Rfam assigns this 100-nucleotide sequence from Daucus carota to the family "Small nucleolar RNA R64/Z200 family". Lineage of the source: Eukaryota > Streptophyta > Tracheophyta > Daucus > Daucus carota.
[Rfam]
RNA sequence: AAAACGCGAUGAAGAAUUUUGAAAUUAUUCACAUGUCAGACUUCAGAGAUUAUCUAUUAGAUGAUCAAUGAGAAGUAAAUUUCAUUUUCCUGAGCCUUGU
Numbered sequence: 001a002a003a004a005c006g007c008g009a010u011g012a013a014g015a016a017u018u019u020u021g022a023a024a025u026u027a028u029u030c031a032c033a034u035g036u037c038a039g040a041c042u043u044c045a046g047a048g049a050u051u052a053u054c055u056a057u058u059a060g061a062u063g064a065u066c067a068a069u070g071a072g073a074a075g076u077a078a079a080u081u082u083c084a085u086u087u088u089c090c091u092g093a094g095c096c097u098u099g100u
Stems, first nucleotide, its partner, number of pairs: 001100001003098002006095002048066007